This 147-nucleotide sequence from Populus trichocarpa belongs to the Rfam family "Small nucleolar RNA snoR2/U65". Rfam 15.1 lists 908 matches to the family in 230 species.

RNA sequence: GGUCCGAUGCCACGUUGCUGGUAGCCAAAAUGGCGUUGACCGGCAAUGCUAUGAUUGGACCGAAACAAAUUCCAUGUUUCGCUUGCUGAUAGGAAUCUGUGGAUCCUAUUCUGUUGAUCCAUGGAGCCGUUUUCGGCGAUUACAUUU
Numbered sequence: 001g002g003u004c005c006g007a008u009g010c011c012a013c014g015u016u017g018c019u020g021g022u023a024g025c026c027a028a029a030a031u032g033g034c035g036u037u038g039a040c041c042g043g044c045a046a047u048g049c050u051a052u053g054a055u056u057g058g059a060c061c062g063a064a065a066c067a068a069a070u071u072c073c074a075u076g077u078u079u080c081g082c083u084u085g086c087u088g089a090u091a092g093g094a095a096u097c098u099g100u101g102g103a104u105c106c107u108a109u110u111c112u113g114u115u116g117a118u119c120c121a122u123g124g125a126g127c128c129g130u131u132u133u134c135g136g137c138g139a140u141u142a143c144a145u146u147u
Stems, first nucleotide, its partner, number of pairs: 002060007009052001013048006020041003024034003079139005092128002097124003101120005
Description:
Pairs were carried over by alignment from the consensus structure, which was predicted with WAR. The source organism's lineage runs through Eukaryota, Pentapetalae, rosids, Saliceae and Populus. Rfam links the family to the GO terms nucleolus and RNA processing. Rfam classes the family as an H/ACA-box small nucleolar RNA.